[Rfam]
A member of the RNA family "Selenocysteine transfer RNA" from Glaciimonas soli, 92 nucleotides long.

RNA sequence: GGAGGGCAAACGUGUCCGGUGGCACGGGCGGGCUUCAAACCCGUCAAGGGGUGUCAAUCAUUCCUUCGUAAGUUCGACUCUUACUGUCCUCC
Numbered sequence: 001g002g003a004g005g006g007c008a009a010a011c012g013u014g015u016c017c018g019g020u021g022g023c024a025c026g027g028g029c030g031g032g033c034u035u036c037a038a039a040c041c042c043g044u045c046a047a048g049g050g051g052u053g054u055c056a057a058u059c060a061u062u063c064c065u066u067c068g069u070a071a072g073u074u075c076g077a078c079u080c081u082u083a084c085u086g087u088c089c090u091c092c
Base pairs, nucleotide, nucleotide: 001092002091003090004089005088006087007086008085011026012025013024014023015022016021027045028044029043030042031041032040047065048064049063050062051061069083070082071081072080
Gene Ontology term of the family: triplet codon-amino acid adaptor activity. On this family, see Mizutani and Goto, FEBS Lett 2000: "Eukaryotic selenocysteine tRNA has the 9/4 secondary structure".